This 88-nucleotide RNA sequence from Geomonas silvestris belongs to the Rfam family "c-di-GMP-I riboswitch aptamer". The match comes from Rfam's covariance-model search (53 bits). Pairs were carried over by alignment from the consensus structure, which is taken from published work. Taxonomically the source falls in Geomonas (Bacteria, Pseudomonadati, Geobacterales, Geobacteraceae). Rfam's curators write: GEMM was predicted in a large-scale screen for bacterial structured RNA regulatory elements.

RNA sequence: GCUCUGCAAAGGUUAACCCACUGAAAGGUGGGGGCACAAAGCCACAGGUCCUCAGUUCUUUCUCGAACCGGACGGCUGGGUCACCAGA
Numbered sequence: 001g002c003u004c005u006g007c008a009a010a011g012g013u014u015a016a017c018c019c020a021c022u023g024a025a026a027g028g029u030g031g032g033g034g035c036a037c038a039a040a041g042c043c044a045c046a047g048g049u050c051c052u053c054a055g056u057u058c059u060u061u062c063u064c065g066a067a068c069c070g071g072a073c074g075g076c077u078g079g080g081u082c083a084c085c086a087g088a
Stems, first nucleotide, its partner, number of pairs: 012037002017032006041081003045078003048073003055068004